[Rfam]
RNA: Small nucleolar RNA SNORD124
Organism: Pampusana beccarii
RNA sequence: UCCUUCCCUGGAAGGGGUGAUGUGUCAGCACUGAGCCCAAGAUAAGGACUCUGCAUUUGCGUGUGAUGAAACUCACUGAGUGCUCUGACCUUCCAUGGCGCGGA
Numbered sequence: 001u002c003c004u005u006c007c008c009u010g011g012a013a014g015g016g017g018u019g020a021u022g023u024g025u026c027a028g029c030a031c032u033g034a035g036c037c038c039a040a041g042a043u044a045a046g047g048a049c050u051c052u053g054c055a056u057u058u059g060c061g062u063g064u065g066a067u068g069a070a071a072c073u074c075a076c077u078g079a080g081u082g083c084u085c086u087g088a089c090c091u092u093c094c095a096u097g098g099c100g101c102g103g104a
Stems, first nucleotide, its partner, number of pairs: 009095007